Background
This 69-nucleotide RNA belongs to the Rfam family "DUF805 RNA". The family is grouped with related families in Rfam's "DUF805 clan". Rfam 15.1 lists 281 matches to the family in 219 species. The family's consensus secondary structure is taken from published work.
RNA sequence: UAAUUGUAGAGACAAGGAACUACAUGAAAACACGGGGCGUUUCUGAAAAGCCAAAUGAGUAAGAGAAAA
Number, nucleotide and partner (000 for none) at each position: 001u000002a000003a000004u000005u000006g023007u022008a021009g020010a000011g000012a000013c000014a000015a000016g000017g000018a000019a000020c009021u008022a007023c006024a000025u000026g000027a000028a000029a000030a000031c000032a000033c000034g000035g000036g052037g051038c050039g000040u000041u000042u000043c063044u062045g000046a000047a000048a000049a000050g038051c037052c036053a000054a000055a000056u000057g000058a000059g000060u000061a000062a044063g043064a000065g000066a000067a000068a000069a000